[Rfam]
RNA sequence: GCCGCUCUGGAAAGCAGUCCGCGCACCGAUGCGGGCUCGCCGAUGGUGAAAGCCGCUCACGCGGUGAAGCUCUCAGGCCCGAUGACAGAGGGGGAGUU
Dot-bracket structure: .((.(((((......((((((((......)))))))).(((((..(.(...((..........))....).))).))).......))))).)).....
Numbered sequence: 001g002c003c004g005c006u007c008u009g010g011a012a013a014g015c016a017g018u019c020c021g022c023g024c025a026c027c028g029a030u031g032c033g034g035g036c037u038c039g040c041c042g043a044u045g046g047u048g049a050a051a052g053c054c055g056c057u058c059a060c061g062c063g064g065u066g067a068a069g070c071u072c073u074c075a076g077g078c079c080c081g082a083u084g085a086c087a088g089a090g091g092g093g094g095a096g097u098u
Stems, first nucleotide, its partner, number of pairs: 002093002005090005016037008039078003042074002046072001048070001052065002
The record is a 98-nucleotide RNA sequence from Cnuibacter physcomitrellae, which matches "Glycine riboswitch aptamer" in Rfam. This family represents the bacterial glycine riboswitch.